[Rfam]
RNA sequence: AACACGAACCAUUCACUACGGAUCGUCCGGCACGUACCUGCCGGUGAAGGGACACGAUU
Number, nucleotide and partner (000 for none) at each position: 001a000002a000003c000004a000005c000006g000007a000008a000009c051010c050011a000012u048013u047014c046015a045016c000017u000018a000019c000020g000021g000022a000023u000024c000025g000026u000027c044028c043029g042030g041031c040032a039033c000034g000035u000036a000037c000038c000039u032040g031041c030042c029043g028044g027045u015046g014047a013048a012049g000050g010051g009052a000053c000054a000055c000056g000057a000058u000059u000
The family of this 59-nucleotide sequence from Sinomonas sp. is "msiK RNA". The family's RNA type in Rfam is cis-regulatory element. Lineage of the source: Bacteria > Bacillati > Actinomycetes > Micrococcales > Sinomonas. A search with the family's covariance model found it, with a score of 61 bits.